[Rfam]
RNA sequence: AUUAAGGAACUUGGCAAGAUGUCGGAAUAGCUGAUUGUGUGUUAAGUUUUCAAAUUUCACGGCUAUGCCUCAUCUAGUCAAUUGCUUUAAUU
Numbered sequence: 001a002u003u004a005a006g007g008a009a010c011u012u013g014g015c016a017a018g019a020u021g022u023c024g025g026a027a028u029a030g031c032u033g034a035u036u037g038u039g040u041g042u043u044a045a046g047u048u049u050u051c052a053a054a055u056u057u058c059a060c061g062g063c064u065a066u067g068c069c070u071c072a073u074c075u076a077g078u079c080a081a082u083u084g085c086u087u088u089a090a091u092u
Base pairs, nucleotide, nucleotide: 005087006086007085009083011081012080013079014078015077017075018074019073020072021071024069025068027066028065029064030063031062032061033060

A member of the RNA family "mir-31 microRNA precursor family" from Lucilia cuprina, 92 nucleotides long. The source organism's lineage runs through Eukaryota, Pancrustacea, Dicondylia, Calyptratae and Lucilia. A search with the family's covariance model found it, with a score of 63 bits. Clan: mir-31 microRNA precursor family. Its family is annotated with RISC complex and gene silencing by miRNA in the Gene Ontology.